Shown here is a 214-nucleotide RNA from Synechococcus sp. PCC 6312, a member of the family "HNH endonuclease-associated RNA and ORF (HEARO) RNA". Lineage of the source: Bacteria > Cyanobacteriota > Synechococcales > Synechococcaceae > Synechococcus. The base pairs follow the family's consensus structure, which is taken from published work. On this family, see Weinberg et al., Nature 2009: "Exceptional structured noncoding RNAs revealed by bacterial metagenome analysis". By type it is a non-coding RNA gene. The match comes from Rfam's covariance-model search (162 bits).
[Rfam]
RNA sequence: GUCAGCACCCCGCACUGAAGUAAUGGGGCUUCAUGCCUCUAGCUUCAGUUAGUUGACCAGCCUAAGUCUUGACUGACUACGUUUUUAAGGUCAUGACACCUACAAAUGCUUUCCAGUUUGUAGCUCUGUCGUUAGCGAUUAAACAGCCUUACGAGGGGUAAAGCAGUGUCGUUAGCCAAACAAGCCUUAAAAACAUUGGCGAGGAACACAUUAC
Numbered sequence: 001g002u003c004a005g006c007a008c009c010c011c012g013c014a015c016u017g018a019a020g021u022a023a024u025g026g027g028g029c030u031u032c033a034u035g036c037c038u039c040u041a042g043c044u045u046c047a048g049u050u051a052g053u054u055g056a057c058c059a060g061c062c063u064a065a066g067u068c069u070u071g072a073c074u075g076a077c078u079a080c081g082u083u084u085u086u087a088a089g090g091u092c093a094u095g096a097c098a099c100c101u102a103c104a105a106a107u108g109c110u111u112u113c114c115a116g117u118u119u120g121u122a123g124c125u126c127u128g129u130c131g132u133u134a135g136c137g138a139u140u141a142a143a144c145a146g147c148c149u150u151a152c153g154a155g156g157g158g159u160a161a162a163g164c165a166g167u168g169u170c171g172u173u174a175g176c177c178a179a180a181c182a183a184g185c186c187u188u189a190a191a192a193a194c195a196u197u198g199g200c201g202a203g204g205a206a207c208a209c210a211u212u213a214c
Stems, first nucleotide, its partner, number of pairs: 001057006007050001009028002011025002014021002060200003064196001065078004081194011096129002100123008110208001112205003131176009143167002146164002149161004